[Rfam]
Nucleotides: 089
Base pairs, nucleotide, nucleotide: 001084002083003082004081
Number, partner (000 for none) and nucleotide at each position: 001084c002083g003082g004081c005000c006000g007000u008000g009000a010000u011000g012000u013000c014000u015000c016000a017000a018000c019000u020000c021000a022000c023000g024000a025000u026000g027000g028000u029000c030000u031000g032000c033000a034000g035000a036000g037000u038000c039000c040000c041000c042000g043000c044000u045000g046000c047000a048000c049000g050000g051000g052000g053000c054000u055000g056000c057000u058000g059000a060000g061000g062000u063000g064000c065000c066000a067000c068000u069000g070000g071000c072000a073000g074000c075000u076000g077000c078000u079000g080000a081004g082003c083002c084001g085000g086000g087000a088000g089000c